Nucleotides: 104
Base pairs, nucleotide, nucleotide: 003102004101005100010092011091012090013089014088015087016086017085018084019083020081021080022079026057027056029055030054031053032052033051035049036048040098041097042096043095044094061078062077063076064075065074066073
Number, partner (000 for none) and nucleotide at each position: 001000a002000u003102c004101a005100g006000a007000g008000u009000a010092g011091g012090a013089a014088a015087u016086a017085a018084a019083g020081c021080g022079u023000u024000a025000a026057g027056u028000g029055c030054u031053g032052g033051g034000a035049g036048g037000a038000u039000g040098g041097g042096a043095u044094g045000u046000u047000g048036c049035c050000a051033c052032c053031u054030g055029g056027a057026c058000g059000a060000a061078g062077g063076a064075u065074a066073a067000g068000g069000g070000a071000a072000c073066u074065u075064a076063u077062u078061c079022g080021c081020g082000g083019u084018u085017u086016u087015a088014u089013u090012u091011u092010c093000g094044c095043a096042u097041u098040c099000g100005c101004u102003g103000c104000a
A member of the RNA family "THF (Tetrahydrofolate) riboswitch aptamer" from Enterococcus thailandicus, 104 nucleotides long. The family has 101 seed sequences and 747 matches in Rfam 15.1. NCBI's taxonomy places the organism under Bacteria, Bacillota, Bacilli, Lactobacillales, Enterococcus. Gene Ontology term of the family: tetrahydrofolate metabolic process. It scores 82 bits against the family's covariance model. Rfam's curators write: Tetrahydrofolate (THF) riboswitch was first reported for Ames et al. as an RNA motif in 5' untranslated (5'-UTR)regions of folate transport and biosynthesis genes in Firmicutes genomes.